[Rfam]
RNA: Bacteroidales-1 6S-Bacteroidales RNA suggested
Organism: Prevotella multiformis
RNA sequence: AGUCGUAUCGAUUCGAUCGGGAUAGUCAUCAAAUAAAUCAGAAAACCCGAGAUGACUUCUUCUGUCAAUGGCGGGCCACAUAAACCGCAUUCCUGCGACUAAGCCGCAAGGCCAGUGGAUUACAAAGACGAAGAGCUCUCCUAUCAUUGAUACUCGGACUUUUCAUCACAUCGUCGGUACGACUUUUCUA
Numbered sequence: 001a002g003u004c005g006u007a008u009c010g011a012u013u014c015g016a017u018c019g020g021g022a023u024a025g026u027c028a029u030c031a032a033a034u035a036a037a038u039c040a041g042a043a044a045a046c047c048c049g050a051g052a053u054g055a056c057u058u059c060u061u062c063u064g065u066c067a068a069u070g071g072c073g074g075g076c077c078a079c080a081u082a083a084a085c086c087g088c089a090u091u092c093c094u095g096c097g098a099c100u101a102a103g104c105c106g107c108a109a110g111g112c113c114a115g116u117g118g119a120u121u122a123c124a125a126a127g128a129c130g131a132a133g134a135g136c137u138c139u140c141c142u143a144u145c146a147u148u149g150a151u152a153c154u155c156g157g158a159c160u161u162u163u164c165a166u167c168a169c170a171u172c173g174u175c176g177g178u179a180c181g182a183c184u185u186u187u188c189u190a
Stems, first nucleotide, its partner, number of pairs: 056135002059133004064129003069124002076118004087096003103112003